Rfam assigns this 56-nucleotide RNA from Molossus molossus to the family "Antizyme RNA frameshifting stimulation element". Its family is annotated with translational frameshifting in the Gene Ontology.

RNA sequence: UGAUGCCCCUGGCCCACUGUCGAUGAGCCCCCGGUGGGCGAGGGGUGGCAGGGAUC
Numbered sequence: 001u002g003a004u005g006c007c008c009c010u011g012g013c014c015c016a017c018u019g020u021c022g023a024u025g026a027g028c029c030c031c032c033g034g035u036g037g038g039c040g041a042g043g044g045g046u047g048g049c050a051g052g053g054a055u056c
Stems, first nucleotide, its partner, number of pairs: 006045005013038006025056002028053002031051001
The base pairs follow the family's consensus structure, which is taken from published work. The match comes from Rfam's covariance-model search (46 bits).